[Rfam]
Eukaryotic small subunit ribosomal RNA: a 101-nucleotide part of an RNA from Aphis gossypii. A search with the family's covariance model found it, with a score of 1174 bits. Rfam links the family to the GO terms structural constituent of ribosome and ribosome. Lineage of the source: Eukaryota > Dicondylia > Sternorrhyncha > Aphidoidea > Aphis.
Nucleotides: 101
Base pairs, nucleotide, nucleotide: 001097002096003095004094005092006091008089009088013085014084015083016082019063020062024058025057026056027055028054029053030052034045035044036043071078072077
Number, partner (000 for none) and nucleotide at each position: 001097g002096a003095g004094a005092c006091g007000g008089g009088c010000g011000g012000g013085g014084g015083c016082a017000u018000u019063c020062g021000u022000a023000c024058c025057g026056a027055g028054a029053c030052g031000u032000u033000a034045g035044a036043g037000g038000u039000g040000a041000a042000a043036u044035u045034c046000u047000u048000g049000g050000a051000u052030c053029g054028u055027c056026u057025c058024g059000a060000g061000a062020c063019g064000a065000a066000c067000u068000g069000a070000c071078g072077c073000g074000a075000a076000a077072g078071c079000a080000u081000u082016u083015g084014c085013c086000a087000a088009g089008u090000a091006c092005g093000u094004u095003c096002u097001c098000g099000u100000a101000u